[Rfam]
RNA sequence: UGCCAAGCAGUGAUGAUGAUGACUAAUGUCAACAGUCCUGAAACUACCUGAUGCUUUUCAGUCACUACCUCAUCUGAGCUCGCA
Number, nucleotide and partner (000 for none) at each position: 001u000002g083003c082004c000005a000006a080007g079008c078009a000010g000011u000012g000013a000014u000015g000016a000017u000018g000019a000020u000021g000022a000023c000024u000025a000026a000027u000028g000029u000030c000031a000032a000033c000034a000035g000036u000037c000038c000039u000040g000041a000042a000043a000044c000045u000046a000047c000048c000049u000050g000051a000052u000053g000054c000055u000056u000057u000058u000059c000060a000061g000062u000063c000064a000065c000066u000067a000068c000069c000070u000071c000072a000073u000074c000075u000076g000077a000078g008079c007080u006081c000082g003083c002084a000
RNA: Small nucleolar RNA SNORD11B